[Rfam]
RNA sequence: GGUUUCGAUUGGUGCAAACCGAAUCACCUUAAUUUGUAAUUUAAGAUGAAAAUUUCCCAUUGGGAACAAAAAGUUAUCCAUUAAGCGGGAAAAAUCCUAU
Numbered sequence: 001g002g003u004u005u006c007g008a009u010u011g012g013u014g015c016a017a018a019c020c021g022a023a024u025c026a027c028c029u030u031a032a033u034u035u036g037u038a039a040u041u042u043a044a045g046a047u048g049a050a051a052a053u054u055u056c057c058c059a060u061u062g063g064g065a066a067c068a069a070a071a072a073g074u075u076a077u078c079c080a081u082u083a084a085g086c087g088g089g090a091a092a093a094a095u096c097c098u099a100u
Base pairs, nucleotide, nucleotide: 009023010022012020055090056089057088058087059081060080062078063077065075066074067073

Plastid-rps12 3UTR RNA: a 100-nucleotide RNA from Trifolium subterraneum. Lineage of the source: Eukaryota > Viridiplantae > Embryophyta > Hologalegina > Trifolium. Rfam describes the family as follows. Plastid rpl20 is a non-coding RNA (ncRNA) recognised in plastids. It was found in the three prime untranslated region (3UTR) of rps12 gene, its 3UTR location sugest a role in transcript maduration. Rfam classes the family as a cis-regulatory element.